[Rfam]
c-di-GMP-I riboswitch aptamer: an 86-nucleotide RNA from Denitratisoma oestradiolicum. The base pairs follow the family's consensus structure, which is taken from published work. Rfam's curators write: GEMM was predicted in a large-scale screen for bacterial structured RNA regulatory elements. Lineage of the source: Bacteria > Betaproteobacteria > Nitrosomonadales > Sterolibacteriaceae > Denitratisoma. The literature on the family includes a 2007 paper in Nucleic Acids Res by Weinberg et al., "Identification of 22 candidate structured RNAs in bacteria using the CMfinder comparative genomics pipeline".
RNA sequence: UCGCUUCCACCGCAAACCCGGCGAAAGCCGGUGACGCAAAGCUACAGGGGCUAAGGGGCAGUGUCCCACGCCAGCCAGCUGCCGGU
Numbered sequence: 001u002c003g004c005u006u007c008c009a010c011c012g013c014a015a016a017c018c019c020g021g022c023g024a025a026a027g028c029c030g031g032u033g034a035c036g037c038a039a040a041g042c043u044a045c046a047g048g049g050g051c052u053a054a055g056g057g058g059c060a061g062u063g064u065c066c067c068a069c070g071c072c073a074g075c076c077a078g079c080u081g082c083c084g085g086u
Stems, first nucleotide, its partner, number of pairs: 012037002018031005040080004047076002049072003056066004